glmS glucosamine-6-phosphate activated ribozyme aptamer: a 164-nucleotide RNA sequence from Thermohalobacter berrensis. The family's consensus secondary structure is taken from published work. The organism belongs to Thermohalobacter, within Bacteria. Rfam links the family to the GO terms regulation of gene expression and catalytic activity.

[Rfam]
RNA sequence: UAGCAAAUUAAAGCGCCAGGACUUAAAGGUAUUAAGCCUUUAAGUUGACGAGGGACGGGGCUUAUCGAGUAUUCGGCGGAUGGCCCUGGGGUAUUGCCACUACCCUUAAAGAUUCCACAAAACCCGUAAGCGAUUACGGGGACAAAGGGAGUCGGGUGGUAUUA
Numbered sequence: 001u002a003g004c005a006a007a008u009u010a011a012a013g014c015g016c017c018a019g020g021a022c023u024u025a026a027a028g029g030u031a032u033u034a035a036g037c038c039u040u041u042a043a044g045u046u047g048a049c050g051a052g053g054g055a056c057g058g059g060g061c062u063u064a065u066c067g068a069g070u071a072u073u074c075g076g077c078g079g080a081u082g083g084c085c086c087u088g089g090g091g092u093a094u095u096g097c098c099a100c101u102a103c104c105c106u107u108a109a110a111g112a113u114u115c116c117a118c119a120a121a122a123c124c125c126g127u128a129a130g131c132g133a134u135u136a137c138g139g140g141g142a143c144a145a146a147g148g149g150a151g152u153c154g155g156g157u158g159g160u161a162u163u164a
Stems, first nucleotide, its partner, number of pairs: 020046008029037001056088005065076004089105005111153006123140007